[Rfam]
RNA sequence: CCGCAGGGAGAAUGAGGGGCUUUUGGGGGCACUUGUGUUUCAGUUUCACCAUCAUAAUGCCCCUAAAAAUCCUUAUUGCUCUUGCA
Numbered sequence: 001c002c003g004c005a006g007g008g009a010g011a012a013u014g015a016g017g018g019g020c021u022u023u024u025g026g027g028g029g030c031a032c033u034u035g036u037g038u039u040u041c042a043g044u045u046u047c048a049c050c051a052u053c054a055u056a057a058u059g060c061c062c063c064u065a066a067a068a069a070u071c072c073u074u075a076u077u078g079c080u081c082u083u084g085c086a
Stems, first nucleotide, its partner, number of pairs: 015074005021068003025064007034056004
RNA: mir-365 microRNA precursor family